[Rfam]
RNA sequence: GGCCUGUGACGCAUGAAAAUUAUUUGCUACUCUUGAUGGUGAGAUCCCAUUUGAUGAUUUUUAUCCGCCAAGAUCUCUGAGGCC
Numbered sequence: 001g002g003c004c005u006g007u008g009a010c011g012c013a014u015g016a017a018a019a020u021u022a023u024u025u026g027c028u029a030c031u032c033u034u035g036a037u038g039g040u041g042a043g044a045u046c047c048c049a050u051u052u053g054a055u056g057a058u059u060u061u062u063a064u065c066c067g068c069c070a071a072g073a074u075c076u077c078u079g080a081g082g083c084c
Base pairs, nucleotide, nucleotide: 001084002083003082004081
RNA: Small nucleolar RNA SNORD24
Organism: Abrus precatorius